[Rfam]
RNA sequence: CUCUGCAGGAGAACCUGCAGGGCGAAAGGAG
Numbered sequence: 001c002u003c004u005g006c007a008g009g010a011g012a013a014c015c016u017g018c019a020g021g022g023c024g025a026a027a028g029g030a031g
Stems, first nucleotide, its partner, number of pairs: 001022008
RNA: L31-Firmicutes ribosomal protein leader
Organism: Takifugu flavidus